EcpR1: a 106-nucleotide RNA sequence from Oharaeibacter diazotrophicus. NCBI's taxonomy places the organism under Bacteria, Pseudomonadati, Alphaproteobacteria, Hyphomicrobiales, Oharaeibacter. It is annotated as a small RNA. The family's consensus secondary structure was predicted with WAR. About the family: Perviously named SmelC291, SmrC10, or Sra33. According to its overproduction phenotype it was renamed Elongated Cell Phenotype RNA1. Induced by stress,EcpR1 negatively regulates cell cycle master regulatory genes dnaA and gcrA at post-transcriptional level by base pairing between its strongly conserved GC-rich loop and the target mRNAs. It's regulation is hfq-independent but requires RNase E to regulate dnaA.
[Rfam]
RNA sequence: GAACCCGGUGAGUACAGGUCCGCCGCAUCUCCUGGACCCACUGGGCCGGCCGGUCGACGACGGCGAGAGUGGCCUCCUCUGUGACCCGUCGUCGACCGGCCUCACC
Numbered sequence: 001g002a003a004c005c006c007g008g009u010g011a012g013u014a015c016a017g018g019u020c021c022g023c024c025g026c027a028u029c030u031c032c033u034g035g036a037c038c039c040a041c042u043g044g045g046c047c048g049g050c051c052g053g054u055c056g057a058c059g060a061c062g063g064c065g066a067g068a069g070u071g072g073c074c075u076c077c078u079c080u081g082u083g084a085c086c087c088g089u090c091g092u093c094g095a096c097c098g099g100c101c102u103c104a105c106c
Stems, first nucleotide, its partner, number of pairs: 004045007013036001015034004048101011